[Rfam]
RNA sequence: GAGAUAUGAUGAGAUAAACUUUUGGUCCGUGUUUCUGAUUUAACCGUGACCGAUAAUUUUUACCAAUUUCUGAUCUC
Numbered sequence: 001g002a003g004a005u006a007u008g009a010u011g012a013g014a015u016a017a018a019c020u021u022u023u024g025g026u027c028c029g030u031g032u033u034u035c036u037g038a039u040u041u042a043a044c045c046g047u048g049a050c051c052g053a054u055a056a057u058u059u060u061u062a063c064c065a066a067u068u069u070c071u072g073a074u075c076u077c
Base pairs, nucleotide, nucleotide: 001077002076003075004074
Dot-bracket structure: ((((.....................................................................))))
A member of the RNA family "Small nucleolar RNA SNORD18" from Populus trichocarpa, 77 nucleotides long. The literature on the family includes a 2001 paper in EMBO J by Giorgi et al., "Release of U18 snoRNA from its host intron requires interaction of Nop1p with the Rnt1p endonuclease". The match comes from Rfam's covariance-model search (54 bits). The organism belongs to Populus, within Eukaryota.